[Rfam]
RNA sequence: UGGUAGAUGCACCCUGGUUCAGCUCUAGAGUUUUUUCUCUAGGGCUUUUGUUU
Numbered sequence: 001u002g003g004u005a006g007a008u009g010c011a012c013c014c015u016g017g018u019u020c021a022g023c024u025c026u027a028g029a030g031u032u033u034u035u036u037c038u039c040u041a042g043g044g045c046u047u048u049u050g051u052u053u
Base pairs, nucleotide, nucleotide: 002013003012004011022045023044024043025042026041027040028039029038030037
Shown here is a 53-nucleotide RNA from Coleofasciculus sp. LEGE 07092, a member of the family "Nitrogen stress-induced RNA 1". Rfam classes the family as a small RNA. The organism belongs to Coleofasciculus, within Bacteria.